[Rfam]
RNA sequence: UUGCUUGUGAGAUGACUUUAGGAAUUGUAAACGAGUAGUUUCUUACUCUAAUUAUUCCUGGGAAGGUCUGAGAUAUGCUCCCAAUUUGGUAUCUCCUUAGGAAGGGAACGUUCAAGUAUGAACGUGAAACUGUACUGGAAGUUGUUUCCCGCAAAAUUCUUACAAUGGAACAAGAAGCUUCUUGUAAGUGGAUUCCGUAUGAAUUUAUGCGUUCGAAAUACGGUUUCGAGCAGCGGCUUUAGUGCGAUAGUCAAAUAACCCAAUUCAGACUACUACACGAGCAA
Numbered sequence: 001u002u003g004c005u006u007g008u009g010a011g012a013u014g015a016c017u018u019u020a021g022g023a024a025u026u027g028u029a030a031a032c033g034a035g036u037a038g039u040u041u042c043u044u045a046c047u048c049u050a051a052u053u054a055u056u057c058c059u060g061g062g063a064a065g066g067u068c069u070g071a072g073a074u075a076u077g078c079u080c081c082c083a084a085u086u087u088g089g090u091a092u093c094u095c096c097u098u099a100g101g102a103a104g105g106g107a108a109c110g111u112u113c114a115a116g117u118a119u120g121a122a123c124g125u126g127a128a129a130c131u132g133u134a135c136u137g138g139a140a141g142u143u144g145u146u147u148c149c150c151g152c153a154a155a156a157u158u159c160u161u162a163c164a165a166u167g168g169a170a171c172a173a174g175a176a177g178c179u180u181c182u183u184g185u186a187a188g189u190g191g192a193u194u195c196c197g198u199a200u201g202a203a204u205u206u207a208u209g210c211g212u213u214c215g216a217a218a219u220a221c222g223g224u225u226u227c228g229a230g231c232a233g234c235g236g237c238u239u240u241a242g243u244g245c246g247a248u249a250g251u252c253a254a255a256u257a258a259c260c261c262a263a264u265u266c267a268g269a270c271u272a273c274u275a276c277a278c279g280a281g282c283a284a
Base pairs, nucleotide, nucleotide: 001284002283003282004281007278008277009276013254017250018249020059021058022057023056024055033048034047035046036045037044038043068268069267070266071265072264077231078230079229080228094106095105096104097103108125109124110123111122112121113120126227127226128225129224130223131222132221146211148209
This 284-nucleotide RNA sequence from Panagrolaimus sp. PS1159 belongs to the Rfam family "Nuclear RNase P". From the family's description: Ribonuclease P (RNase P) is a ubiquitous endoribonuclease, found in archaea, bacteria and eukarya as well as chloroplasts and mitochondria. Its best characterised activity is the generation of mature 5'-ends of tRNAs by cleaving the 5'-leader elements of precursor-tRNAs. Cellular RNase Ps are ribonucleoproteins. RNA from bacterial RNase Ps retains its catalytic activity in the absence of the protein subunit, i.e. it is a ribozyme. Rfam links the family to the GO terms ribonuclease P complex, ribonuclease P activity and tRNA processing. Pairs were carried over by alignment from the consensus structure, which is taken from published work. It scores 99 bits against the family's covariance model.